[Rfam]
RNA: SAM riboswitch aptamer (S box leader)
RNA sequence: AGCAUAUCAAGAGUGCGGCGAGAGAACUAGCUCGUUGAGCCGCCAGCAACCUGCUUUAGCAUGAGACGAUUCCAUGUUACGGUAAGGUGCUCCAUCUAGCCCGAAUGGGAAGAUAUUUU
Numbered sequence: 001a002g003c004a005u006a007u008c009a010a011g012a013g014u015g016c017g018g019c020g021a022g023a024g025a026a027c028u029a030g031c032u033c034g035u036u037g038a039g040c041c042g043c044c045a046g047c048a049a050c051c052u053g054c055u056u057u058a059g060c061a062u063g064a065g066a067c068g069a070u071u072c073c074a075u076g077u078u079a080c081g082g083u084a085a086g087g088u089g090c091u092c093c094a095u096c097u098a099g100c101c102c103g104a105a106u107g108g109g110a111a112g113a114u115a116u117u118u119u
Base pairs, nucleotide, nucleotide: 001119002118004116005115006114007113008112013044015043016042017041018040022033023032024031027099028098029097030096045091046090047089048088050087051086052084053083054082055081095111100108101107